[Rfam]
Annotation:
MIR5269 microRNA precursor family: an 80-nucleotide RNA from Medicago truncatula. Taxonomically the source falls in Medicago (Eukaryota, Embryophyta, Pentapetalae, Trifolieae). The family has 2 seed sequences and 389 matches in Rfam 15.1. The match comes from Rfam's covariance-model search (61 bits). Rfam links the family to the GO terms RISC complex and miRNA-mediated post-transcriptional gene silencing.

RNA sequence: UUGGGUGAAAUCAAUGUGGGUUCCACAUUUUGGAAAUGAGUCCCACAUGAAGUGGUGGGACUGACAUUAAUUUCAUCAAA
Numbered sequence: 001u002u003g004g005g006u007g008a009a010a011u012c013a014a015u016g017u018g019g020g021u022u023c024c025a026c027a028u029u030u031u032g033g034a035a036a037u038g039a040g041u042c043c044c045a046c047a048u049g050a051a052g053u054g055g056u057g058g059g060a061c062u063g064a065c066a067u068u069a070a071u072u073u074c075a076u077c078a079a080a
Stems, first nucleotide, its partner, number of pairs: 001080002004077008013068005023058003026054007